[Rfam]
RNA sequence: AGAAAUUUUUUUGGUAUAAAACACUUAUGUUGAUAAAAUGAUUUGAAUCAUUU
Dot-bracket structure: ..........(((((((.........)))))))....................

Background: Plastid-atpF group II-D1 intron: a 53-nucleotide RNA from Vitis rotundifolia. The source organism's lineage runs through Eukaryota, Euphyllophyta, Spermatophyta, rosids and Vitis. A reference for the family is Richter et al. (2023), "Retrograde signaling in plants: A critical review focusing on the GUN pathway and beyond", Plant Commun. A search with the family's covariance model found it, with a score of 55 bits. Plastid atpF is a non-coding RNA (ncRNA) recognised in plastids. It has been reported in the intron group II-D1 region of ATP synthase (atpF) genes.